[Rfam]
Annotation:
Rfam assigns this 61-nucleotide RNA from Stockwellia quadrifida to the family "Plastid-rps12 3UTR RNA". Rfam's curators write: Plastid rpl20 is a non-coding RNA (ncRNA) recognised in plastids. It was found in the three prime untranslated region (3UTR) of rps12 gene, its 3UTR location sugest a role in transcript maduration.
RNA sequence: GGUUUCCGAUGAGAAAAAAUUCCUCAUUGGUAACAAAUAGUUAUUCAUUAAGCGGGGAAAU
Numbered sequence: 001g002g003u004u005u006c007c008g009a010u011g012a013g014a015a016a017a018a019a020u021u022c023c024u025c026a027u028u029g030g031u032a033a034c035a036a037a038u039a040g041u042u043a044u045u046c047a048u049u050a051a052g053c054g055g056g057g058a059a060a061u
Stems, first nucleotide, its partner, number of pairs: 022057004026048002029045006
Rfam classes the family as a cis-regulatory element. The family has 1,299 seed sequences and 1,710 matches in Rfam 15.1. The sequence is in the family's curated seed alignment. Pairs were carried over by alignment from the consensus structure, which was predicted with LocARNA.